A member of the RNA family "GP20-b RNA", 62 nucleotides long. The family's RNA type in Rfam is cis-regulatory element.

Nucleotides: 062
Base pairs, nucleotide, nucleotide: 001016002015003014004013009025010024011023036050037049038048039047
Number, partner (000 for none) and nucleotide at each position: 001016u002015g003014c004013c005000c006000c007000g008000g009025g010024c011023a012000c013004g014003g015002c016001g017000u018000a019000a020000a021000a022000c023011u024010g025009c026000g027000g028000c029000u030000a031000u032000c033000c034000u035000g036050u037049g038048a039047g040000a041000a042000g043000c044000g045000a046000c047039c048038u049037c050036g051000u052000a053000a054000a055000a056000a057000a058000g059000c060000g061000u062000a